Rfam assigns this 165-nucleotide RNA from Betaproteobacteria bacterium MOLA814 to the family "Group II catalytic intron D1-D4-3".
Taxonomically the source falls in Betaproteobacteria (Bacteria, Pseudomonadati, Pseudomonadota).
Group II introns are found in rRNA, tRNA and mRNA of organelles in fungi, plants and protists, and also in mRNA in bacteria.
It scores 98 bits against the family's covariance model.
RNA sequence: UUGACCAUGCGGUUUGGUCUGACGGAAGGCGGACGCACAACUGCGAGCCGAUGAACAACAACAUCAUAUGAGGCGUAGGCUGGAGGCGGGUUGGCACAAGACGACGAAGCCAUGUGAUCUAACGGCCACCGUCAAUGAUGCAGUUGCGCGGGGGAAGUUCAUGUU
Numbered sequence: 001u002u003g004a005c006c007a008u009g010c011g012g013u014u015u016g017g018u019c020u021g022a023c024g025g026a027a028g029g030c031g032g033a034c035g036c037a038c039a040a041c042u043g044c045g046a047g048c049c050g051a052u053g054a055a056c057a058a059c060a061a062c063a064u065c066a067u068a069u070g071a072g073g074c075g076u077a078g079g080c081u082g083g084a085g086g087c088g089g090g091u092u093g094g095c096a097c098a099a100g101a102c103g104a105c106g107a108a109g110c111c112a113u114g115u116g117a118u119c120u121a122a123c124g125g126c127c128a129c130c131g132u133c134a135a136u137g138a139u140g141c142a143g144u145u146g147c148g149c150g151g152g153g154g155a156a157g158u159u160c161a162u163g164u165u
Stems, first nucleotide, its partner, number of pairs: 001016001003014004028165004035158002041151005046145003050141001062140006073132003078127005085111003090105004